[Rfam]
RNA sequence: CAUGGGGCGUCAAUUAAACCGUUACCAUUACUGACUUUAGUAAUGGUAACGGUUCUACUGCUGCCCCAGCA
Numbered sequence: 001c002a003u004g005g006g007g008c009g010u011c012a013a014u015u016a017a018a019c020c021g022u023u024a025c026c027a028u029u030a031c032u033g034a035c036u037u038u039a040g041u042a043a044u045g046g047u048a049a050c051g052g053u054u055c056u057a058c059u060g061c062u063g064c065c066c067c068a069g070c071a
Base pairs, nucleotide, nucleotide: 007064008063009062011060012059017054018053019052020051022049023048024047025046026045027044028043029042030041031040032039033038

Notes:
This 71-nucleotide sequence from Terrapene triunguis belongs to the Rfam family "mir-451 microRNA precursor family". The family's consensus secondary structure was predicted with RNAalifold. A search with the family's covariance model found it, with a score of 73 bits. Its family is annotated with RISC complex and miRNA-mediated post-transcriptional gene silencing in the Gene Ontology.